Notes: The family of this 316-nucleotide RNA from Methanobacterium alkalithermotolerans is "Archaeal signal recognition particle RNA". Its family is annotated with signal recognition particle, plasma membrane targeting and SRP-dependent cotranslational protein targeting to membrane, signal sequence recognition in the Gene Ontology. The organism belongs to Methanobacterium, within Archaea. A search with the family's covariance model found it, with a score of 202 bits. The family's consensus secondary structure is taken from published work.
RNA sequence: GUGCGGGCUAGACUGGAGGGUUAGGGGUCCUCUAUAAGCACAUAUCCCCUAUAUGGUGCAGUUGAAGUUCAAGAGGCGGCAUAUCAACUAAUUGCCGGCCUGAAAAUUCAAUGUAGAAACCACGUCCUGCAGGAUUAGUGGUAUCAGGGUCUCAGCUGGAGGGCGGAGAUAAACUGAUUUAAUCAUGGGAACGGGUCAGGCCUGGAAAGGAGCAGCUCUACUGUGAACAACUGAUGCUUGCGGAGCAACGGGGCGGAGUUGGAUUUUUAGAUCACCGGUAACUGGAAGGUAUGUCCACUCUUGAACACGCCCUUUU
Numbered sequence: 001g002u003g004c005g006g007g008c009u010a011g012a013c014u015g016g017a018g019g020g021u022u023a024g025g026g027g028u029c030c031u032c033u034a035u036a037a038g039c040a041c042a043u044a045u046c047c048c049c050u051a052u053a054u055g056g057u058g059c060a061g062u063u064g065a066a067g068u069u070c071a072a073g074a075g076g077c078g079g080c081a082u083a084u085c086a087a088c089u090a091a092u093u094g095c096c097g098g099c100c101u102g103a104a105a106a107u108u109c110a111a112u113g114u115a116g117a118a119a120c121c122a123c124g125u126c127c128u129g130c131a132g133g134a135u136u137a138g139u140g141g142u143a144u145c146a147g148g149g150u151c152u153c154a155g156c157u158g159g160a161g162g163g164c165g166g167a168g169a170u171a172a173a174c175u176g177a178u179u180u181a182a183u184c185a186u187g188g189g190a191a192c193g194g195g196u197c198a199g200g201c202c203u204g205g206a207a208a209g210g211a212g213c214a215g216c217u218c219u220a221c222u223g224u225g226a227a228c229a230a231c232u233g234a235u236g237c238u239u240g241c242g243g244a245g246c247a248a249c250g251g252g253g254c255g256g257a258g259u260u261g262g263a264u265u266u267u268u269a270g271a272u273c274a275c276c277g278g279u280a281a282c283u284g285g286a287a288g289g290u291a292u293g294u295c296c297a298c299u300c301u302u303g304a305a306c307a308c309g310c311c312c313u314u315u316u
Base pairs, nucleotide, nucleotide: 001316003314005312006311007310008309011063012062013061014060015033016032017031018030019029020028021027038059039058040057041056067306068305069304070303071302072301073300074299075298078295079294080293081292084288088285089284090283092281093280094279095278096277097276098275100270101269102268103267104266105265106264107263108262109261110260111259112258114256120253121252123250124249125248127243128242129241130240131239132238133237134235135234136233137232138231139229140228141180143178144177145176146175147174149170150169151168152167153166155164156163157162183226184225185224186223187222188221193218194217195216196215201210202209203208
Dot-bracket structure: (.(.((((..(((((((((((.....)))))))....((((..............))))))))...(((((((((..((((..(...(((.(((((((.(((((((((((((.(.....((.(((.(((((((((((((((.(((((.(((((.(((....))).)))))...))))).)..((((((....((((....(((....)))....))))..)))))).)).))))).)))))))....))).))..).)))))))))))))....))))))).)))..)...))))..)))))))))..)))).).)